Rfam assigns this 127-nucleotide sequence from Flavonifractor sp. An100 to the family "FMN riboswitch aptamer (RFN element)".
The source organism's lineage runs through Bacteria, Bacillati, Bacillota, Oscillospiraceae and Flavonifractor.
The base pairs follow the family's consensus structure, which is taken from published work.
RNA sequence: CAAUGUCUUCAGGGCGGGGUGAAAUUCCCCACUGGCGGUACAGUCCGCGACCGGGUCCAGAAAUGGACCCGCUGACUCGGUGAAACUCCGGGACCAACGGUUACAGUCCGGAUGGAAGAAGAUGUGU
Numbered sequence: 001c002a003a004u005g006u007c008u009u010c011a012g013g014g015c016g017g018g019g020u021g022a023a024a025u026u027c028c029c030c031a032c033u034g035g036c037g038g039u040a041c042a043g044u045c046c047g048c049g050a051c052c053g054g055g056u057c058c059a060g061a062a063a064u065g066g067a068c069c070c071g072c073u074g075a076c077u078c079g080g081u082g083a084a085a086c087u088c089c090g091g092g093a094c095c096a097a098c099g100g101u102u103a104c105a106g107u108c109c110g111g112a113u114g115g116a117a118g119a120a121g122a123u124g125u126g127u
Base pairs, nucleotide, nucleotide: 003125004124005123006122007121008120009119010118017029018028019027031107032106033096034095035048036047037046038045043094044093052071053070076092077091078090079089080088098110099109100108
Its family is annotated with FMN binding in the Gene Ontology. About the family: The RFN element is a highly conserved domain that is found frequently in the 5'-untranslated regions of prokaryotic mRNAs that encode for flavin mononucleotide (FMN) biosynthesis and transport proteins. It scores 116 bits against the family's covariance model.